[Rfam]
RNA: Glycine riboswitch aptamer
RNA sequence: GCAGCCGCGGCGGGAGAUGUCGAGCUUCGCGCCGACUGCCGAAGGAGCAAAUCCUCCCCGGGACACUCUCAGGCCCCCGAACCGCCGCGGCCAG
Numbered sequence: 001g002c003a004g005c006c007g008c009g010g011c012g013g014g015a016g017a018u019g020u021c022g023a024g025c026u027u028c029g030c031g032c033c034g035a036c037u038g039c040c041g042a043a044g045g046a047g048c049a050a051a052u053c054c055u056c057c058c059c060g061g062g063a064c065a066c067u068c069u070c071a072g073g074c075c076c077c078c079g080a081a082c083c084g085c086c087g088c089g090g091c092c093a094g
Stems, first nucleotide, its partner, number of pairs: 006089008019036004038074003041070002045068003052060001